Rfam assigns this 116-nucleotide RNA sequence from Firmicutes bacterium CAG:238 to the family "SAM riboswitch aptamer (S box leader)".
A search with the family's covariance model found it, with a score of 81 bits.
Rfam links the family to the GO term regulation of gene expression.
Taxonomically the source falls in Bacillota (Bacteria, Bacillati).
RNA sequence: UCCUUAUUAAGAGCGGCUGAGGGAAUAGGCCCGAUGAAGCCCGGCAACCUAGAUGUUUCAGGAGUGAAAUGACAAAGGUGCUAAAUCCUACAGAAUCUAAUUCUGAAAGAUGAGGA
Numbered sequence: 001u002c003c004u005u006a007u008u009a010a011g012a013g014c015g016g017c018u019g020a021g022g023g024a025a026u027a028g029g030c031c032c033g034a035u036g037a038a039g040c041c042c043g044g045c046a047a048c049c050u051a052g053a054u055g056u057u058u059c060a061g062g063a064g065u066g067a068a069a070u071g072a073c074a075a076a077g078g079u080g081c082u083a084a085a086u087c088c089u090a091c092a093g094a095a096u097c098u099a100a101u102u103c104u105g106a107a108a109g110a111u112g113a114g115g116a
Stems, first nucleotide, its partner, number of pairs: 001116008013042001015041003021032003026090004043082004048078002050074001086108001091105006